[Rfam]
RNA sequence: UCACAAGUUCAAGGCCAUAGCACAAGUGCUCAUGGCAUGGCCCUGUCAGAUUCCAACGAAACUGCAAAUUCUGCU
Numbered sequence: 001u002c003a004c005a006a007g008u009u010c011a012a013g014g015c016c017a018u019a020g021c022a023c024a025a026g027u028g029c030u031c032a033u034g035g036c037a038u039g040g041c042c043c044u045g046u047c048a049g050a051u052u053c054c055a056a057c058g059a060a061a062c063u064g065c066a067a068a069u070u071c072u073g074c075u
Stems, first nucleotide, its partner, number of pairs: 013042004019075004024070002026038003047064003051060003
The family of this 75-nucleotide RNA from Alligator mississippiensis is "Mammalian CPEB3 ribozyme". It scores 46 bits against the family's covariance model. Rfam's curators write: The mammalian CPEB3 ribozyme is a self cleaving RNA located in the second intron of the CPEB3 gene which belongs to a family of genes regulating messenger RNA polyadenylation. NCBI's taxonomy places the organism under Eukaryota, Gnathostomata, Teleostomi, Amniota, Alligator.